[Rfam]
RNA sequence: AAAUGUACUCUUUCAGCAUUUCUCCAGUAGGUUUCUUCAAGGAGAAAGCCCCC
Numbered sequence: 001a002a003a004u005g006u007a008c009u010c011u012u013u014c015a016g017c018a019u020u021u022c023u024c025c026a027g028u029a030g031g032u033u034u035c036u037u038c039a040a041g042g043a044g045a046a047a048g049c050c051c052c053c
Base pairs, nucleotide, nucleotide: 030050031049032048033046034045035044036043037042

This 53-nucleotide RNA from Salvelinus namaycush belongs to the Rfam family "U7 small nuclear RNA". The base pairs follow the family's consensus structure, which was predicted with PFOLD.